[Rfam]
RNA sequence: GCCAAAUGAUGAUCUAUAUAGAUGCAUGAGCACAACGUGCAGGGAUGACCAACUAUCUAUCACCCAUGACUGAUGGCU
Numbered sequence: 001g002c003c004a005a006a007u008g009a010u011g012a013u014c015u016a017u018a019u020a021g022a023u024g025c026a027u028g029a030g031c032a033c034a035a036c037g038u039g040c041a042g043g044g045a046u047g048a049c050c051a052a053c054u055a056u057c058u059a060u061c062a063c064c065c066a067u068g069a070c071u072g073a074u075g076g077c078u
Stems, first nucleotide, its partner, number of pairs: 001077004030040004
This 78-nucleotide RNA from Muraenolepis orangiensis belongs to the Rfam family "Small nucleolar RNA SNORD83". The base pairs follow the family's consensus structure, which was predicted with PFOLD. Gene Ontology terms of the family: RNA processing and nucleolus. Lineage of the source: Eukaryota > Vertebrata > Gnathostomata > Neoteleostei > Muraenolepis. On this family, see Jady and Kiss, Nucleic Acids Res 2000: "Characterisation of the U83 and U84 small nucleolar RNAs: two novel 2'-O-ribose methylation guide RNAs that lack complementarities to ribosomal RNAs".